[Rfam]
Rfam assigns this 85-nucleotide RNA sequence from Cocos nucifera to the family "Small nucleolar RNA SNORD34". For this family Rfam cites "The high diversity of snoRNAs in plants: identification and comparative study of 120 snoRNA genes from Oryza sativa" (Chen et al., Nucleic Acids Res, 2003). About the family: snoRNA U34 is found in intron 5 of the ribosomal protein L13a gene in humans. The family's consensus secondary structure was predicted with PFOLD. Its Rfam clan is "SNORD34 clan".
RNA sequence: GAGGCCUAUGAUACUCAACAAACAUGUUGCCUACAUUGCUUGAUUCAUUAGUGUGAUAAGAAUUUACUGUUUUUCUGAGGCCUUC
Numbered sequence: 001g002a003g004g005c006c007u008a009u010g011a012u013a014c015u016c017a018a019c020a021a022a023c024a025u026g027u028u029g030c031c032u033a034c035a036u037u038g039c040u041u042g043a044u045u046c047a048u049u050a051g052u053g054u055g056a057u058a059a060g061a062a063u064u065u066a067c068u069g070u071u072u073u074u075c076u077g078a079g080g081c082c083u084u085c
Base pairs, nucleotide, nucleotide: 001084003082004081005080006079
Dot-bracket structure: (.((((........................................................................)))).).